RNA sequence: GAUCAGCAUAUGCAGGGGCAUACAUUGUAUGUGACGGAACUCCCAGCAGGAAGACUUGCAAAGGUGAUUUCCCUUUC
Numbered sequence: 001g002a003u004c005a006g007c008a009u010a011u012g013c014a015g016g017g018g019c020a021u022a023c024a025u026u027g028u029a030u031g032u033g034a035c036g037g038a039a040c041u042c043c044c045a046g047c048a049g050g051a052a053g054a055c056u057u058g059c060a061a062a063g064g065u066g067a068u069u070u071c072c073c074u075u076u077c
Base pairs, nucleotide, nucleotide: 011048012047013046015044016043017042018032019031020030021029022028